Small Cajal body specific RNA 8: a 129-nucleotide RNA sequence from Thrips palmi. It is annotated as a small Cajal body RNA. Pairs were carried over by alignment from the consensus structure, which is taken from published work. The literature on the family includes a 2002 paper in EMBO J by Darzacq et al., "Cajal body-specific small nuclear RNAs: a novel class of 2'-O-methylation and pseudouridylation guide RNAs". The match comes from Rfam's covariance-model search (68 bits).

[Rfam]
RNA sequence: UGGGAGAAGAUACGUGAGGUAUCUUUCAAACACAGGAUUCUCACCACUAACACUCCCUACAAAAUAAGGCUCUCUGAUGACUGUAGUUCUUAAAGGUACUGACUGCAGACAGAUACGGAGCCAACACCU
Numbered sequence: 001u002g003g004g005a006g007a008a009g010a011u012a013c014g015u016g017a018g019g020u021a022u023c024u025u026u027c028a029a030a031c032a033c034a035g036g037a038u039u040c041u042c043a044c045c046a047c048u049a050a051c052a053c054u055c056c057c058u059a060c061a062a063a064a065u066a067a068g069g070c071u072c073u074c075u076g077a078u079g080a081c082u083g084u085a086g087u088u089c090u091u092a093a094a095g096g097u098a099c100u101g102a103c104u105g106c107a108g109a110c111a112g113a114u115a116c117g118g119a120g121c122c123a124a125c126a127c128c129u
Stems, first nucleotide, its partner, number of pairs: 002057005014044004022036003068122006081108003086103003
NCBI's taxonomy places the organism under Eukaryota, Bilateria, Panarthropoda, Thripidae, Thrips. scaRNAs are a specific class of small nuclear RNAs which localise to the Cajal bodies and guide the modification of RNA polymerase II transcribed spliceosomal RNAs U1, U2, U4, U5 and U12. U92 belong to the H/ACA box class of guide RNAs as it has the predicted hairpin-hinge-hairpin-tail structure, conserved H/ACA-box motifs and is found associated with GAR1.